[Rfam]
Bacterial large subunit ribosomal RNA: a 343-nucleotide part of an RNA from uncultured bacterium 164.
RNA sequence: UGUGAGAACCCUCGUUCAGGAACUCGGCAAAAUGUAACCGUAACUUCGGGAGAAGGUUAGCCGUGUUCACCAAGAACACGGUCGCAGAGAAAUGUCUCAGGCGACUGUUUAGCAAAAACACAGGUCUCCGCAAAGUUGUAAAGACAACGUAUGGGGGCUGACGCCUGCCCAAUGCUGGAAGGUUAAGAGGAGUGGUUAGGGGUAACCCGAAGCUGCGAAUCGAAGCCCCAGUGAAUGGCGGCCGUAACUAUAACGGUCCUAAGGUAGCGAAAUUCCUUGUCGGGUAAGUUCCGACCUGCACGAAUGGCGUAACGAUCUGAGAGCUGUCUUAACGAGGGGCACA
Numbered sequence: 001u002g003u004g005a006g007a008a009c010c011c012u013c014g015u016u017c018a019g020g021a022a023c024u025c026g027g028c029a030a031a032a033u034g035u036a037a038c039c040g041u042a043a044c045u046u047c048g049g050g051a052g053a054a055g056g057u058u059a060g061c062c063g064u065g066u067u068c069a070c071c072a073a074g075a076a077c078a079c080g081g082u083c084g085c086a087g088a089g090a091a092a093u094g095u096c097u098c099a100g101g102c103g104a105c106u107g108u109u110u111a112g113c114a115a116a117a118a119c120a121c122a123g124g125u126c127u128c129c130g131c132a133a134a135g136u137u138g139u140a141a142a143g144a145c146a147a148c149g150u151a152u153g154g155g156g157g158c159u160g161a162c163g164c165c166u167g168c169c170c171a172a173u174g175c176u177g178g179a180a181g182g183u184u185a186a187g188a189g190g191a192g193u194g195g196u197u198a199g200g201g202g203u204a205a206c207c208c209g210a211a212g213c214u215g216c217g218a219a220u221c222g223a224a225g226c227c228c229c230a231g232u233g234a235a236u237g238g239c240g241g242c243c244g245u246a247a248c249u250a251u252a253a254c255g256g257u258c259c260u261a262a263g264g265u266a267g268c269g270a271a272a273u274u275c276c277u278u279g280u281c282g283g284g285u286a287a288g289u290u291c292c293g294a295c296c297u298g299c300a301c302g303a304a305u306g307g308c309g310u311a312a313c314g315a316u317c318u319g320a321g322a323g324c325u326g327u328c329u330u331a332a333c334g335a336g337g338g339g340c341a342c343a
Stems, first nucleotide, its partner, number of pairs: 001343004009338008018329003035059005044049001060082009083087001095322007102314002106120003123159008131149001135145003162309004167239003172236002174232005181227003187221002192216005199208002240258006259263001269296001279295006
The sequence is in the family's curated seed alignment.